RNA: Proteo-phage-1 RNA
Organism: Acidithiobacillus ferrivorans
RNA sequence: CCCCAGUCUGCGGGGCGCUUAUGCGGAGCGGUAAGCAGACCAUGGACCAGCCAGCGGUUGUCCAUGUCAGUAGAAAAACACUGGCAGCC
Number, nucleotide and partner (000 for none) at each position: 001c015002c014003c013004c012005a000006g000007u039008c038009u037010g036011c035012g004013g003014g002015g001016c030017g029018c028019u027020u026021a000022u000023g000024c000025g000026g020027a019028g018029c017030g016031g000032u000033a000034a000035g011036c010037a009038g008039a007040c000041c066042a065043u064044g063045g062046a000047c000048c000049a000050g085051c084052c083053a082054g081055c000056g000057g000058u000059u000060g000061u000062c045063c044064a043065u042066g041067u000068c000069a000070g000071u000072a000073g000074a000075a000076a000077a000078a000079c000080a000081c054082u053083g052084g051085c050086a000087g000088c000089c000